[Rfam]
RNA sequence: UAGUAGAUGCACCCUGAUAACUACUUUUCCCUGGUUGGAUCACAUCUAACUUGGGAAUUUUCUA
Dot-bracket structure: ..((......))...............((((.((((((.......)))))).))))........
This 64-nucleotide sequence from Anabaena sp. FACHB-1237 belongs to the Rfam family "Nitrogen stress-induced RNA 1". Rfam 15.1 lists 962 matches to the family in 163 species. Lineage of the source: Bacteria > Cyanobacteriota > Cyanophyceae > Nostocales > Anabaena. The pairing is the family consensus, mapped onto this sequence.